[Rfam]
RNA sequence: GAGAUAGAAUUCAAGAGAAUCUAUACUCACAAGCCGGUUUAUUUGUAAUUUUAUUGUAGAGCUUAUAUUCAAAAAAUGAGACUCAUGA
Numbered sequence: 001g002a003g004a005u006a007g008a009a010u011u012c013a014a015g016a017g018a019a020u021c022u023a024u025a026c027u028c029a030c031a032a033g034c035c036g037g038u039u040u041a042u043u044u045g046u047a048a049u050u051u052u053a054u055u056g057u058a059g060a061g062c063u064u065a066u067a068u069u070c071a072a073a074a075a076a077u078g079a080g081a082c083u084c085a086u087g088a
Base pairs, nucleotide, nucleotide: 001028002027003026004024005023006022007021008020010019011018059084060083061082062080063079064078065077066076068075069074

pan motif: an 88-nucleotide sequence from Peptostreptococcus stomatis. The base pairs follow the family's consensus structure, which is taken from published work. The family's RNA type in Rfam is cis-regulatory element. The source organism's lineage runs through Bacteria, Bacillota, Clostridia, Peptostreptococcaceae and Peptostreptococcus stomatis. A search with the family's covariance model found it, with a score of 46 bits.